[Rfam]
A member of the RNA family "Manganese Mn2+ riboswitch aptamer (yybP-ykoY)" from Sphingomonas sp. G-3-2-10, 190 nucleotides long. From the family's description: This RNA was originally discovered in E. coli during a large scale screen and was named SraF. The family was later found to exist upstream of related families of protein genes in many bacteria, including the the yybP and ykoK genes in B. subtilis. The specific functions of these proteins are unknown, but this structured RNA element may be involved in their genetic regulation as a riboswitch.
RNA sequence: ACCCCUGUCAUUCGGGGAGUAGCCCGCCGUCCUUUGGGGCGGAUGCCAGCGUCAACAUACUUGGGGGAGACCUCAUGGCGCGGCAGGAGCGGUCCGGAAACGGAGUGCUUCAGGCGAGACCGAUGGCAACGGCUUUCCGCUCAUGGUCGGGCGGGAGAGGCGUUGUCGUCGUGUCCAUGUCCGCCCGGCC
Numbered sequence: 001a002c003c004c005c006u007g008u009c010a011u012u013c014g015g016g017g018a019g020u021a022g023c024c025c026g027c028c029g030u031c032c033u034u035u036g037g038g039g040c041g042g043a044u045g046c047c048a049g050c051g052u053c054a055a056c057a058u059a060c061u062u063g064g065g066g067g068a069g070a071c072c073u074c075a076u077g078g079c080g081c082g083g084c085a086g087g088a089g090c091g092g093u094c095c096g097g098a099a100a101c102g103g104a105g106u107g108c109u110u111c112a113g114g115c116g117a118g119a120c121c122g123a124u125g126g127c128a129a130c131g132g133c134u135u136u137c138c139g140c141u142c143a144u145g146g147u148c149g150g151g152c153g154g155g156a157g158a159g160g161c162g163u164u165g166u167c168g169u170c171g172u173g174u175c176c177a178u179g180u181c182c183g184c185c186c187g188g189c190c
Stems, first nucleotide, its partner, number of pairs: 027042003044085004049081006062075005091190004
Source information
On this family, see Argaman et al., Curr Biol 2001: "Novel small RNA-encoding genes in the intergenic regions of Escherichia coli". The match comes from Rfam's covariance-model search (51 bits). Rfam 15.1 lists 1,126 matches to the family in 1,062 species.